[Rfam]
RNA sequence: CCUGGUCUGUGAUGAUUCCCUUUCUUUGGAGACUGUUGGAUGAAUCCUGCGGAUAUGGGGCUGAGGCCAGGU
Dot-bracket structure: (((((.............................................................))))).

This 72-nucleotide RNA from Chaetura pelagica belongs to the Rfam family "Small nucleolar RNA SNORD99". Rfam 15.1 lists 673 matches to the family in 613 species. For this family Rfam cites "Purified box C/D snoRNPs are able to reproduce site-specific 2'-O-methylation of target RNA in vitro" (Galardi et al., Mol Cell Biol, 2002). Clan: SNORD58 clan. The match comes from Rfam's covariance-model search (75 bits).